The record is a 112-nucleotide RNA sequence from Capsicum baccatum, which matches "Small nucleolar RNA Z279/snoR105/snoR108" in Rfam.
A reference for the family is Marker et al. (2002), "Experimental RNomics: identification of 140 candidates for small non-messenger RNAs in the plant Arabidopsis thaliana", Curr Biol.
Its family is annotated with nucleolus and RNA processing in the Gene Ontology.
Pairs were carried over by alignment from the consensus structure, which was predicted with PFOLD.
The family is grouped with related families in Rfam's "snoU13 clan".

[Rfam]
Nucleotides: 112
Stems, first nucleotide, its partner, number of pairs: 001112004014102004023047005049091008068083004
Number, partner (000 for none) and nucleotide at each position: 001112g002111g003110g004109a005000a006000g007000u008000g009000a010000u011000g012000a013000g014102u015101g016100g017099u018000c019000a020000u021000u022000a023047c024046u025045u026044g027043c028000a029000c030000a031000u032000u033000u034000u035000a036000a037000a038000c039000a040000a041000a042000u043027g044026c045025a046024a047023g048000a049091g050090g051089g052088g053087c054086g055085u056084u057000c058000c059000a060000g061000c062000c063000c064000a065000g066000c067000c068083u069082g070081g071080u072000u073000a074000c075000g076000a077000c078000a079000a080071a081070u082069u083068g084056g085055g086054c087053g088052c089051c090050c091049u092000c093000a094000c095000u096000u097000a098000u099017a100016c101015c102014a103000a104000u105000c106000u107000g108000a109004u110003c111002c112001c

About this RNA:
The family's RNA type in Rfam is C/D-box small nucleolar RNA. This family includes the plant snoRNAs known as Z279, snoR105 and snoR108.